[Rfam]
RNA sequence: AAUGAGUGAUGACAAGAUGUUUCGGUCCCAAAUGAAGCCUACUGAUUACCGUAACAUUUAUUGCUGACAUU
Numbered sequence: 001a002a003u004g005a006g007u008g009a010u011g012a013c014a015a016g017a018u019g020u021u022u023c024g025g026u027c028c029c030a031a032a033u034g035a036a037g038c039c040u041a042c043u044g045a046u047u048a049c050c051g052u053a054a055c056a057u058u059u060a061u062u063g064c065u066g067a068c069a070u071u
Stems, first nucleotide, its partner, number of pairs: 001071004

About this RNA:
A member of the RNA family "Small nucleolar RNA SNORD73" from Mus musculus, 71 nucleotides long. A reference for the family is Rebane et al. (1998), "A novel snoRNA (U73) is encoded within the introns of the human and mouse ribosomal protein S3a genes", Gene. The source organism's lineage runs through Eukaryota, Chordata, Boreoeutheria, Muridae and Mus. The family has 25 seed sequences and 769 matches in Rfam 15.1.